Shown here is a 141-nucleotide RNA sequence, a member of the family "Small nucleolar RNA snoR136". On this family, see Chen and Wu, Nucleic Acids Res 2009: "Mining small RNA sequencing data: a new approach to identify small nucleolar RNAs in Arabidopsis". It is annotated as an H/ACA-box small nucleolar RNA.

RNA sequence: GUGGCUUCAGAUUUUGAUUUUAAUUAUGCUUGCACCUAAUUUAUUGUGUUUGCAAUGUUCUAUGAAGCCUAUAAUUGUGUUCCCCUCGCUAUCCACUACUGCAAAUCUAAUGCUGUAUAUGGACGUCGGGGAACAAAAUUU
Numbered sequence: 001g002u003g004g005c006u007u008c009a010g011a012u013u014u015u016g017a018u019u020u021u022a023a024u025u026a027u028g029c030u031u032g033c034a035c036c037u038a039a040u041u042u043a044u045u046g047u048g049u050u051u052g053c054a055a056u057g058u059u060c061u062a063u064g065a066a067g068c069c070u071a072u073a074a075u076u077g078u079g080u081u082c083c084c085c086u087c088g089c090u091a092u093c094c095a096c097u098a099c100u101g102c103a104a105a106u107c108u109a110a111u112g113c114u115g116u117a118u119a120u121g122g123a124c125g126u127c128g129g130g131g132a133a134c135a136a137a138a139u140u141u
Stems, first nucleotide, its partner, number of pairs: 001072002003069003008064002013062001016060002019057001027054003031048001034047002079134007087125002092123004101113003